A member of the RNA family "U1 spliceosomal RNA" from Oenanthe oenanthe, 153 nucleotides long. Rfam's curators write: U1 is a small nuclear RNA (snRNA) component of the spliceosome (involved in pre-mRNA splicing). Its 5' end forms complementary base pairs with the 5' splice junction, thus defining the 5' donor site of an intron. There are significant differences in sequence and secondary structure between metazoan and yeast U1 snRNAs, the latter being much longer (568 nucleotides as compared to 164 nucleotides in human). Nevertheless, secondary structure predictions suggest that all U1 snRNAs share a 'common core' consisting of helices I, II, the proximal region of III, and IV. This family does not contain the larger yeast sequences. Rfam 15.1 lists 40,184 matches to the family in 1,499 species.
[Rfam]
RNA sequence: AUACCUACCUGGCAGGGGAGACACCAGGAUCAGGCAACUGGUUUUUCCAAGGCAGGGUUCAUCCCCUGCACUCUGGGUGUCCUGACCCCUGGGAUUUCCCAAAAUGCGGCUGCAUAAUUAGUAGUACAGAGGACUGCUCCAGCAGGGGCCUUG
Numbered sequence: 001a002u003a004c005c006u007a008c009c010u011g012g013c014a015g016g017g018g019a020g021a022c023a024c025c026a027g028g029a030u031c032a033g034g035c036a037a038c039u040g041g042u043u044u045u046u047c048c049a050a051g052g053c054a055g056g057g058u059u060c061a062u063c064c065c066c067u068g069c070a071c072u073c074u075g076g077g078u079g080u081c082c083u084g085a086c087c088c089c090u091g092g093g094a095u096u097u098c099c100c101a102a103a104a105u106g107c108g109g110c111u112g113c114a115u116a117a118u119u120a121g122u123a124g125u126a127c128a129g130a131g132g133a134c135u136g137c138u139c140c141a142g143c144a145g146g147g148g149c150c151u152u153g
Base pairs, nucleotide, nucleotide: 012113013112014111015110016048017047018046019045020044021043023042024041025040026039027038049090051088052087056083057082060079061078062077063076064075093107095104096102097101129152130151131150132149134145135144136143137142